[Rfam]
The record is a 108-nucleotide RNA from Plutella xylostella, which matches "mir-8517 microRNA precursor family" in Rfam.
The source organism's lineage runs through Eukaryota, Metazoa, Hexapoda, Neolepidoptera and Plutella.
A search with the family's covariance model found it, with a score of 72 bits.
Rfam links the family to the GO terms miRNA-mediated post-transcriptional gene silencing and RISC complex.
RNA sequence: UUAUAGUACGUUUUAGCUAUUGAUCUCUUUUGUCCCUCUCUGUCGAAGAAAAAAAAGUACUUUGACAGAUUGGAACAAAACAGUUCAAUAGCUAAAACGUCCUAUAAC
Numbered sequence: 001u002u003a004u005a006g007u008a009c010g011u012u013u014u015a016g017c018u019a020u021u022g023a024u025c026u027c028u029u030u031u032g033u034c035c036c037u038c039u040c041u042g043u044c045g046a047a048g049a050a051a052a053a054a055a056a057g058u059a060c061u062u063u064g065a066c067a068g069a070u071u072g073g074a075a076c077a078a079a080a081c082a083g084u085u086c087a088a089u090a091g092c093u094a095a096a097a098c099g100u101c102c103u104a105u106a107a108c
Stems, first nucleotide, its partner, number of pairs: 001107006011097013025083002028080001029069006050058001